[Rfam]
RNA sequence: AAAGAUCGAUACCGAGGGGGGCAUGAUGCCCCGGAGAAUUCCUGUUCACGCAGGCAGCCCGUACAGUGUACUGGCUGAAACUCCCUAUACCUCAACAAACUGCCACUCCGGCGUGAAGGUAUCGUUCU
Numbered sequence: 001a002a003a004g005a006u007c008g009a010u011a012c013c014g015a016g017g018g019g020g021g022c023a024u025g026a027u028g029c030c031c032c033g034g035a036g037a038a039u040u041c042c043u044g045u046u047c048a049c050g051c052a053g054g055c056a057g058c059c060c061g062u063a064c065a066g067u068g069u070a071c072u073g074g075c076u077g078a079a080a081c082u083c084c085c086u087a088u089a090c091c092u093c094a095a096c097a098a099a100c101u102g103c104c105a106c107u108c109c110g111g112c113g114u115g116a117a118g119g120u121a122u123c124g125u126u127c128u
Stems, first nucleotide, its partner, number of pairs: 002128001004126002007124007018032005033084004041054005055077004061071004
RNA: EFASI RNA
Organism: Salmonella enterica